RNA sequence: AACUGUCAAUGAUGAAUAUGUUUAAAACAAACAUUGGGAAUCUCUCUGAAACACUUGAAGGACAACUUUCUACUGAUGCAGUG
Numbered sequence: 001a002a003c004u005g006u007c008a009a010u011g012a013u014g015a016a017u018a019u020g021u022u023u024a025a026a027a028c029a030a031a032c033a034u035u036g037g038g039a040a041u042c043u044c045u046c047u048g049a050a051a052c053a054c055u056u057g058a059a060g061g062a063c064a065a066c067u068u069u070c071u072a073c074u075g076a077u078g079c080a081g082u083g
Stems, first nucleotide, its partner, number of pairs: 002082005
RNA: Small nucleolar RNA SNORD79